[Rfam]
Rfam assigns this 265-nucleotide RNA from Sporobacter termitidis to the family "Bacterial large signal recognition particle RNA". It scores 193 bits against the family's covariance model. Rfam classes the family as a non-coding RNA gene. For this family Rfam cites "Prediction of signal recognition particle RNA genes" (Regalia et al., Nucleic Acids Res, 2002). Rfam describes the family as follows. The signal recognition particle (SRP) is a universally conserved ribonucleoprotein involved in the co-translational targeting of proteins to membranes. The organism belongs to Sporobacter termitidis, within Bacteria.

RNA sequence: CCGCACUAGUCGGGGAGUCAGCGGUGCCCUGUCGCCUGCAACCCGCUACAGCAGGGAUGAAUCCCGGCCCCCGGAUUUGUGAUGUGUCGUCUGAACCCGGUAAGCAGCGUUGACGAGCCGGUCUCGCGCAACGUAAAUUCGUGAAUCAUGUCAGGCGGGGAACCGAGCAGCAUUAAGCGAAAAUUUGCGUGUGCCGCGAGGCCACCGGUUCUGAGCCGGCUGCCGUUGUUACGGACAUAUCACACUUUCAAAGGCCGGUGUGCGG
Numbered sequence: 001c002c003g004c005a006c007u008a009g010u011c012g013g014g015g016a017g018u019c020a021g022c023g024g025u026g027c028c029c030u031g032u033c034g035c036c037u038g039c040a041a042c043c044c045g046c047u048a049c050a051g052c053a054g055g056g057a058u059g060a061a062u063c064c065c066g067g068c069c070c071c072c073g074g075a076u077u078u079g080u081g082a083u084g085u086g087u088c089g090u091c092u093g094a095a096c097c098c099g100g101u102a103a104g105c106a107g108c109g110u111u112g113a114c115g116a117g118c119c120g121g122u123c124u125c126g127c128g129c130a131a132c133g134u135a136a137a138u139u140c141g142u143g144a145a146u147c148a149u150g151u152c153a154g155g156c157g158g159g160g161a162a163c164c165g166a167g168c169a170g171c172a173u174u175a176a177g178c179g180a181a182a183a184u185u186u187g188c189g190u191g192u193g194c195c196g197c198g199a200g201g202c203c204a205c206c207g208g209u210u211c212u213g214a215g216c217c218g219g220c221u222g223c224c225g226u227u228g229u230u231a232c233g234g235a236c237a238u239a240u241c242a243c244a245c246u247u248u249c250a251a252a253g254g255c256c257g258g259u260g261u262g263c264g265g
Base pairs, nucleotide, nucleotide: 001265002264003263004262005261006260009058010057011056012030013029014028015027017025018024019023035055036054037053038052039051064258065257066256067255068254069253073249074248075247079243080242081241082240083239084238085237086236087235088234093229098225099224100223101222104220105219107216108215115211116210117209118208119207120206121205122204123200124199125198126197127196128195129191130190132189133188134187135186136185138181139180140179141178142177148173149172150171151170156165157164158163